RNA sequence: AGGCAGCCUCCUUGCGAAUUAUAUAAUGGCAUGUGUGGCGUUAUUCUGCUCAUAGAUAGAAUUUUCUGCUCUUCAGAUUUGCUGAGGUUGGGUAUUAUAUAUAUCCAAUCUCUGAAGCUGGUCUAGUAAGCUCAAGUACAUU
Numbered sequence: 001a002g003g004c005a006g007c008c009u010c011c012u013u014g015c016g017a018a019u020u021a022u023a024u025a026a027u028g029g030c031a032u033g034u035g036u037g038g039c040g041u042u043a044u045u046c047u048g049c050u051c052a053u054a055g056a057u058a059g060a061a062u063u064u065u066c067u068g069c070u071c072u073u074c075a076g077a078u079u080u081g082c083u084g085a086g087g088u089u090g091g092g093u094a095u096u097a098u099a100u101a102u103a104u105c106c107a108a109u110c111u112c113u114g115a116a117g118c119u120g121g122u123c124u125a126g127u128a129a130g131c132u133c134a135a136g137u138a139c140a141u142u
Base pairs, nucleotide, nucleotide: 002042003041004040007038008037009035011033013031014030015029017027063136064135065134068131069130070129075124076123077122078121079120081118082117083116086110087109088108089107090106091105092104093103094102095101
Small nucleolar RNA snoR77: a 142-nucleotide RNA from Aquilegia coerulea. Gene Ontology terms of the family: RNA processing and nucleolus. Lineage of the source: Eukaryota > Viridiplantae > Mesangiospermae > Thalictroideae > Aquilegia. By type it is an H/ACA-box small nucleolar RNA. For this family Rfam cites "Experimental RNomics: identification of 140 candidates for small non-messenger RNAs in the plant Arabidopsis thaliana" (Marker et al., Curr Biol, 2002).